This 123-nucleotide RNA sequence from Tetrahymena elliotti belongs to the Rfam family "Tetrahymena snoRNA TtnuHACA20". The family's consensus secondary structure was predicted with mfold. The literature on the family includes a 2012 paper in Nucleic Acids Res by Andersen and Nielsen, "Experimental identification and analysis of macronuclear non-coding RNAs from the ciliate Tetrahymena thermophila".
RNA sequence: AAAGCAUGGAUAAUUGGAUUUCAGCAAAUAUUCGUGAAGAUUUCUGCAAAAAUUGAAGUAAAUAGCAGUUUAUGAGCUAAACGACGUUAAUGAUGUUUAUAUCACUGGCCUGCGCUUACAUCU
Numbered sequence: 001a002a003a004g005c006a007u008g009g010a011u012a013a014u015u016g017g018a019u020u021u022c023a024g025c026a027a028a029u030a031u032u033c034g035u036g037a038a039g040a041u042u043u044c045u046g047c048a049a050a051a052a053u054u055g056a057a058g059u060a061a062a063u064a065g066c067a068g069u070u071u072a073u074g075a076g077c078u079a080a081a082c083g084a085c086g087u088u089a090a091u092g093a094u095g096u097u098u099a100u101a102u103c104a105c106u107g108g109c110c111u112g113c114g115c116u117u118a119c120a121u122c123u
Stems, first nucleotide, its partner, number of pairs: 005036008014027003039054005058119004065113004071107002073104003078099006085092002

About this RNA: Taxonomically the source falls in Tetrahymena elliotti (Eukaryota, Sar, Ciliophora, Hymenostomatida). It is one of the family's seed sequences.